[Rfam]
Bacterial RNase P class A: a 362-nucleotide RNA from Oleispira antarctica. Rfam classes the family as a ribozyme.
RNA sequence: GGAGAUGCCUAGGCAAUCGUCGCUUUUAGUACUUGUACUAAAGGGGGAGGAAAGUCCGGGCUCCACAGGGCAGGGUGCCAGGUAACGCCUGGGCGGUGUAAACCGACGACAAGUGCAGCAGAGAGAAGACCGCCGAUGACUCGUUCGCGAGCACAGGUAAGGCUGAAAGGGUGCGGUAAGAGCGCACCGGACCACUGGUAACAGUUGGUUGCAGGGUAAACUCCACCCGGAGCAAGAUCAAAUAGGCUCUCUUAUGGCGUGGCCCACGUUGAGAGCGGGUAGAUCGCUUGAGCCUGCGAGCAAUUUCAGGCCUAGAUGAAUGAUUGUCCUCGACAAAACCCGGCUUACUGGCGUCUCCACCA
Numbered sequence: 001g002g003a004g005a006u007g008c009c010u011a012g013g014c015a016a017u018c019g020u021c022g023c024u025u026u027u028a029g030u031a032c033u034u035g036u037a038c039u040a041a042a043g044g045g046g047g048a049g050g051a052a053a054g055u056c057c058g059g060g061c062u063c064c065a066c067a068g069g070g071c072a073g074g075g076u077g078c079c080a081g082g083u084a085a086c087g088c089c090u091g092g093g094c095g096g097u098g099u100a101a102a103c104c105g106a107c108g109a110c111a112a113g114u115g116c117a118g119c120a121g122a123g124a125g126a127a128g129a130c131c132g133c134c135g136a137u138g139a140c141u142c143g144u145u146c147g148c149g150a151g152c153a154c155a156g157g158u159a160a161g162g163c164u165g166a167a168a169g170g171g172u173g174c175g176g177u178a179a180g181a182g183c184g185c186a187c188c189g190g191a192c193c194a195c196u197g198g199u200a201a202c203a204g205u206u207g208g209u210u211g212c213a214g215g216g217u218a219a220a221c222u223c224c225a226c227c228c229g230g231a232g233c234a235a236g237a238u239c240a241a242a243u244a245g246g247c248u249c250u251c252u253u254a255u256g257g258c259g260u261g262g263c264c265c266a267c268g269u270u271g272a273g274a275g276c277g278g279g280u281a282g283a284u285c286g287c288u289u290g291a292g293c294c295u296g297c298g299a300g301c302a303a304u305u306u307c308a309g310g311c312c313u314a315g316a317u318g319a320a321u322g323a324u325u326g327u328c329c330u331c332g333a334c335a336a337a338a339c340c341c342g343g344c345u346u347a348c349u350g351g352c353g354u355c356u357c358c359a360c361c362a
Stems, first nucleotide, its partner, number of pairs: 001358009012328007020047002023044008052346003056343005061232004068265004073228005078092005093107001094105004108223002113221002115217002130162002132158003140151004170188006189212001190210005195204003236285004246276006256270005292311005298305002